[Rfam]
RNA sequence: UGACCCUUUAAUAAUAGUCCCGUGAGGCUAAAAAGGAAACGGAAUUUAUAGCAUAGGUAUGGCUGCGUAUAUCCAAUUCCCUUUUUUCCUCAUGGAGAAAAGGGAAUUUUUA
Number, nucleotide and partner (000 for none) at each position: 001u000002g000003a000004c000005c036006c035007u034008u033009u032010a000011a000012u000013a000014a000015u030016a029017g028018u027019c026020c000021c000022g000023u000024g000025a000026g019027g018028c017029u016030a015031a000032a009033a008034a007035g006036g005037a000038a000039a000040c000041g073042g072043a000044a070045u069046u000047u067048a000049u065050a064051g063052c062053a000054u000055a000056g000057g000058u000059a000060u000061g000062g052063c051064u050065g049066c000067g047068u000069a045070u044071a000072u042073c041074c000075a000076a107077u106078u105079c104080c103081c102082u101083u100084u099085u098086u097087u096088c095089c094090u000091c000092a000093u000094g089095g088096a087097g086098a085099a084100a083101a082102g081103g080104g079105a078106a077107u076108u000109u000110u000111u000112a000

This 112-nucleotide RNA sequence from Virgibacillus oceani belongs to the Rfam family "PyrR binding site". From the family's description: This family represents the PyrR binding site and terminator structure. It scores 58 bits against the family's covariance model. By type it is a cis-regulatory element. The base pairs follow the family's consensus structure, which is taken from published work.